[Rfam]
Shown here is a 223-nucleotide RNA sequence from Azotobacter vinelandii, a member of the family "Group II catalytic intron D1-D4-6". Rfam describes the family as follows. Group II introns are found in rRNA, tRNA and mRNA of organelles in fungi, plants and protists, and also in mRNA in bacteria. Rfam's curators put it in the seed alignment. Pairs were carried over by alignment from the consensus structure.
RNA sequence: AAAGUUCGAUACUGGUAAGAAAUGGCGAAUCAACCAGCCCCCGAGUCAUGCACGUUGCACCGUGAGGUGCAGGGUGAAGCGUUGACAGGGGAAACCGAUGGGCCAGCCAUUGAGCCGCGUAAUCAGAAAUCCGGGACGCCGAUGCUGUUAAGCGAAGCAGAAGGCAAUACGGGGCAUGGCGUUAUACGCCAGUCAUGCCCUGGUCCUGCGCGGUCGGAGACCC
Numbered sequence: 001a002a003a004g005u006u007c008g009a010u011a012c013u014g015g016u017a018a019g020a021a022a023u024g025g026c027g028a029a030u031c032a033a034c035c036a037g038c039c040c041c042c043g044a045g046u047c048a049u050g051c052a053c054g055u056u057g058c059a060c061c062g063u064g065a066g067g068u069g070c071a072g073g074g075u076g077a078a079g080c081g082u083u084g085a086c087a088g089g090g091g092a093a094a095c096c097g098a099u100g101g102g103c104c105a106g107c108c109a110u111u112g113a114g115c116c117g118c119g120u121a122a123u124c125a126g127a128a129a130u131c132c133g134g135g136a137c138g139c140c141g142a143u144g145c146u147g148u149u150a151a152g153c154g155a156a157g158c159a160g161a162a163g164g165c166a167a168u169a170c171g172g173g174g175c176a177u178g179g180c181g182u183u184a185u186a187c188g189c190c191a192g193u194c195a196u197g198c199c200c201u202g203g204u205c206c207u208g209c210g211c212g213g214u215c216g217g218a219g220a221c222c223c
Base pairs, nucleotide, nucleotide: 012037013036014035015034016033019031020030023191024190025189026188039091040090041089042088045086046085047084048083049081050080051076052075053074055072056071057070058069059068060067061066111217112215114214115213116212117211118210119209132208133207134206135205136204137203138165139164140163143159144158145157146156170202171201172200173199174198175197176196177195178194179193180192